[Rfam]
The family of this 106-nucleotide RNA from Lactiplantibacillus plantarum is "SAM-III riboswitch aptamer (SMK box)". The match comes from Rfam's covariance-model search (64 bits). The source organism's lineage runs through Bacteria, Bacillati, Bacillota, Lactiplantibacillus and Lactiplantibacillus plantarum. The family's consensus secondary structure is taken from published work. Rfam links the family to the GO terms methionine adenosyltransferase activity and regulation of translational initiation.
RNA sequence: UAUAGUUAUGAGCCGUUCCCGAAAGGAUAAGUUUAGCUUGUUCGACGAAGAAUAAGUGAUGCUUAGAUGCCUUGUAACCGAAAUUAUCAAGGGGGAAUUUAUUGUG
Numbered sequence: 001u002a003u004a005g006u007u008a009u010g011a012g013c014c015g016u017u018c019c020c021g022a023a024a025g026g027a028u029a030a031g032u033u034u035a036g037c038u039u040g041u042u043c044g045a046c047g048a049a050g051a052a053u054a055a056g057u058g059a060u061g062c063u064u065a066g067a068u069g070c071c072u073u074g075u076a077a078c079c080g081a082a083a084u085u086a087u088c089a090a091g092g093g094g095g096a097a098u099u100u101a102u103u104g105u106g
Base pairs, nucleotide, nucleotide: 016097017096018095019094020093023073024072025071026070028065029064030063031062032061078092079091